[Rfam]
RNA: Selenocysteine transfer RNA
Organism: Laribacter hongkongensis
RNA sequence: GGCAGGAAAUCACUCCCGGUGGGGUGGCCGGUCUUCAAAACCGGAUUGGGGGCGCCAGCGCUCCCUGGCAGGUUCGACUCCUGUUUUCUGCC
Numbered sequence: 001g002g003c004a005g006g007a008a009a010u011c012a013c014u015c016c017c018g019g020u021g022g023g024g025u026g027g028c029c030g031g032u033c034u035u036c037a038a039a040a041c042c043g044g045a046u047u048g049g050g051g052g053c054g055c056c057a058g059c060g061c062u063c064c065c066u067g068g069c070a071g072g073u074u075c076g077a078c079u080c081c082u083g084u085u086u087u088c089u090g091c092c
Stems, first nucleotide, its partner, number of pairs: 001092009011026006027046001028044005048065005069083004